The family of this 402-nucleotide sequence from Saccharicrinis fermentans is "Bacterial RNase P class A". The family's RNA type in Rfam is ribozyme. Taxonomically the source falls in Saccharicrinis fermentans (Bacteria, Pseudomonadati, Marinilabiliales, Marinilabiliaceae).

RNA sequence: AUAGCAAGUCAGUCUAUCGCCGCAAUGACCGAAUCGUUCUUUGGAUGUUUCGUGUAAUUGAGGAGGAAAGUCCGGGCAAUAAAGGGCACCUUGCUUCCUAACAGGAAGAUAUCCGUGAGGGUAUAGUAAUGCAGCAGAAAAUAACCGUCAGGCUUUGCUUGAUAAGGGUGAGAAGGUGAGGUAAGAGCUCACCGGUAUCCGUGGUAACACAGAUAGCCGUGCAACUCAAGGAUUGCAAGACCAAAUAUAUCACGAUUUCGUAAGAUACGGAGCGGCCCGUUCUGGUGUUUCGGCAGUCGUGAGGGGUAGGUUGCUGAAGGUCAUGAGUGAUCAUGAUCGUAGACAAAUGAUAGACCGCUCUUUUGGGAGCGACAGAACCCGGCUUAUCGACUUGCUAUUUUU
Numbered sequence: 001a002u003a004g005c006a007a008g009u010c011a012g013u014c015u016a017u018c019g020c021c022g023c024a025a026u027g028a029c030c031g032a033a034u035c036g037u038u039c040u041u042u043g044g045a046u047g048u049u050u051c052g053u054g055u056a057a058u059u060g061a062g063g064a065g066g067a068a069a070g071u072c073c074g075g076g077c078a079a080u081a082a083a084g085g086g087c088a089c090c091u092u093g094c095u096u097c098c099u100a101a102c103a104g105g106a107a108g109a110u111a112u113c114c115g116u117g118a119g120g121g122u123a124u125a126g127u128a129a130u131g132c133a134g135c136a137g138a139a140a141a142u143a144a145c146c147g148u149c150a151g152g153c154u155u156u157g158c159u160u161g162a163u164a165a166g167g168g169u170g171a172g173a174a175g176g177u178g179a180g181g182u183a184a185g186a187g188c189u190c191a192c193c194g195g196u197a198u199c200c201g202u203g204g205u206a207a208c209a210c211a212g213a214u215a216g217c218c219g220u221g222c223a224a225c226u227c228a229a230g231g232a233u234u235g236c237a238a239g240a241c242c243a244a245a246u247a248u249a250u251c252a253c254g255a256u257u258u259c260g261u262a263a264g265a266u267a268c269g270g271a272g273c274g275g276c277c278c279g280u281u282c283u284g285g286u287g288u289u290u291c292g293g294c295a296g297u298c299g300u301g302a303g304g305g306g307u308a309g310g311u312u313g314c315u316g317a318a319g320g321u322c323a324u325g326a327g328u329g330a331u332c333a334u335g336a337u338c339g340u341a342g343a344c345a346a347a348u349g350a351u352a353g354a355c356c357g358c359u360c361u362u363u364u365g366g367g368a369g370c371g372a373c374a375g376a377a378c379c380c381g382g383c384u385u386a387u388c389g390a391c392u393u394g395c396u397a398u399u400u401u402u
Base pairs, nucleotide, nucleotide: 001398002397003396004395005394006393007392008391009390010389011387012355013354014353015352016351017350018349020063021062023060024059025058026057028055068385069384070383072382073381074380075379076378077235078234079233080232084291085290086289089231090230091229092228093227094108095107096106097105098104109124111122112121113120114119125226126225131222132221133220145167146166147163148162149161150160151159152158153157175193176192177191178190179189180188195217196215197214198213199212201210202209203208239312240311241310242309250302251301252300253299254298282296283295284294286292319338320337321336322335323334324333325332326331